RNA sequence: UCGUCGACGAUCGUCGGCGAGAUGAAGUGGAUGUGCGUGUCGAUGCCGCCGGCCGUGAGGAUCUUGCCGUUGCCCGCGAGGAUCUCGGUCUCCGGGCCGAUGACCAGGUCGGGGUGGACGCCGUCCAUCGUGUCCGGGUUGCCGGCCUUGCCGAUGCCGGUGAUCCUGCCGUCGCGGAUGCCGACGUCCGCCUUGACCACACCCCAGUGGUCGAUGAUCACGGCGCCGGUGAUCACGGUGUCGGGCGCGCCUUCGGCCCGUGUCGUACGGGACUGCCCCAUCGACUCGCGG
Numbered sequence: 001u002c003g004u005c006g007a008c009g010a011u012c013g014u015c016g017g018c019g020a021g022a023u024g025a026a027g028u029g030g031a032u033g034u035g036c037g038u039g040u041c042g043a044u045g046c047c048g049c050c051g052g053c054c055g056u057g058a059g060g061a062u063c064u065u066g067c068c069g070u071u072g073c074c075c076g077c078g079a080g081g082a083u084c085u086c087g088g089u090c091u092c093c094g095g096g097c098c099g100a101u102g103a104c105c106a107g108g109u110c111g112g113g114g115u116g117g118a119c120g121c122c123g124u125c126c127a128u129c130g131u132g133u134c135c136g137g138g139u140u141g142c143c144g145g146c147c148u149u150g151c152c153g154a155u156g157c158c159g160g161u162g163a164u165c166c167u168g169c170c171g172u173c174g175c176g177g178a179u180g181c182c183g184a185c186g187u188c189c190g191c192c193u194u195g196a197c198c199a200c201a202c203c204c205c206a207g208u209g210g211u212c213g214a215u216g217a218u219c220a221c222g223g224c225g226c227c228g229g230u231g232a233u234c235a236c237g238g239u240g241u242c243g244g245g246c247g248c249g250c251c252u253u254c255g256g257c258c259c260g261u262g263u264c265g266u267a268c269g270g271g272a273c274u275g276c277c278c279c280a281u282c283g284a285c286u287c288g289c290g291g
Stems, first nucleotide, its partner, number of pairs: 001291003005288003011163006017073004028051003032048002035046004055067003076151001079148003083144001088142002092138002095134003102129002107125003111121001168277001170275002175269002178266003181262001189225004194220002204213001228258002238250003
Shown here is a 291-nucleotide sequence from Streptomyces silvensis, a member of the family "5' ureB small RNA". The organism belongs to Streptomyces, within Bacteria. Gene Ontology term of the family: negative regulation of gene expression.